[Rfam]
RNA sequence: GAGCUGACUGUAGCUCAGCAGUUCCUUUGAAUCACUUGCCAACCACUCCUGCUUGCGAGGGUUGUUUGAGACCCGCGGGUCUCCUCCAGCCCUUUA
Numbered sequence: 001g002a003g004c005u006g007a008c009u010g011u012a013g014c015u016c017a018g019c020a021g022u023u024c025c026u027u028u029g030a031a032u033c034a035c036u037u038g039c040c041a042a043c044c045a046c047u048c049c050u051g052c053u054u055g056c057g058a059g060g061g062u063u064g065u066u067u068g069a070g071a072c073c074c075g076c077g078g079g080u081c082u083c084c085u086c087c088a089g090c091c092c093u094u095u096a
Stems, first nucleotide, its partner, number of pairs: 003090004013080004018076002021073001026070005
A member of the RNA family "Vault RNA" from Myotis lucifugus, 96 nucleotides long. From the family's description: This family of RNAs are found as part of the enigmatic vault ribonucleoprotein complex. The complex consists of a major vault protein (MVP), two minor vault proteins (VPARP and TEP1), and several small untranslated RNA molecules. It has been suggested that the vault complex is involved in drug resistance. By type it is a non-coding RNA gene.